About this RNA
This 246-nucleotide RNA sequence from Rhizopus arrhizus belongs to the Rfam family "Group I catalytic intron". A reference for the family is Cech (1990), "Self-splicing of group I introns", Annu Rev Biochem. The base pairs follow the family's consensus structure, which is taken from published work. The match comes from Rfam's covariance-model search (115 bits). From the family's description: Group I catalytic introns are large self-splicing ribozymes.

[Rfam]
RNA sequence: GAGUGUGGGUAAGUGUAUGCCCCCUAUAAUAGUAAUAUUAUUCGGAAAAUCGGGUGAAUUGCAAAAAACUCCAAUUUAAUUAAUUGGACAAUUUGCAGCGAAGCUUAUAUCGGUAUUUUAAUAGAUAUAUGAACGUUCAACGACUAGAAGGUGAGUAAUACCAACAAUAAUCUUUCCACGAGUGCCCGACAACCUUAAAUAAAUCAAAGGUUGAUGACAUAGUCUGAACCAUAUGGUAACAUAUGG
Numbered sequence: 001g002a003g004u005g006u007g008g009g010u011a012a013g014u015g016u017a018u019g020c021c022c023c024c025u026a027u028a029a030u031a032g033u034a035a036u037a038u039u040a041u042u043c044g045g046a047a048a049a050u051c052g053g054g055u056g057a058a059u060u061g062c063a064a065a066a067a068a069c070u071c072c073a074a075u076u077u078a079a080u081u082a083a084u085u086g087g088a089c090a091a092u093u094u095g096c097a098g099c100g101a102a103g104c105u106u107a108u109a110u111c112g113g114u115a116u117u118u119u120a121a122u123a124g125a126u127a128u129a130u131g132a133a134c135g136u137u138c139a140a141c142g143a144c145u146a147g148a149a150g151g152u153g154a155g156u157a158a159u160a161c162c163a164a165c166a167a168u169a170a171u172c173u174u175u176c177c178a179c180g181a182g183u184g185c186c187c188g189a190c191a192a193c194c195u196u197a198a199a200u201a202a203a204u205c206a207a208a209g210g211u212u213g214a215u216g217a218c219a220u221a222g223u224c225u226g227a228a229c230c231a232u233a234u235g236g237u238a239a240c241a242u243a244u245g246g
Stems, first nucleotide, its partner, number of pairs: 005025001007023003012018001029039001050189004055184002060097006070088005098136002105129001110124001112122001140225001142224005192211005199204001231244005